[Rfam]
RNA sequence: GGCCUCCCUCUGUGGGACUAUCAAUUGCAGGGCCCCCAGAUUGAUUGUCCUGCAGGGGGAGGCC
Numbered sequence: 001g002g003c004c005u006c007c008c009u010c011u012g013u014g015g016g017a018c019u020a021u022c023a024a025u026u027g028c029a030g031g032g033c034c035c036c037c038a039g040a041u042u043g044a045u046u047g048u049c050c051u052g053c054a055g056g057g058g059g060a061g062g063c064c
Base pairs, nucleotide, nucleotide: 001064002063003062004061005060006059007058008057009056010055011054012053013052014051015050016049017048018047020045021044022043023042024041025040026039030037031036
Record summary
A member of the RNA family "mir-9242 microRNA precursor family" from Myotis davidii, 64 nucleotides long. Rfam links the family to the GO terms RISC complex and miRNA-mediated post-transcriptional gene silencing. Lineage of the source: Eukaryota > Gnathostomata > Teleostomi > Mammalia > Myotis. Rfam 15.1 lists 940 matches to the family in 18 species.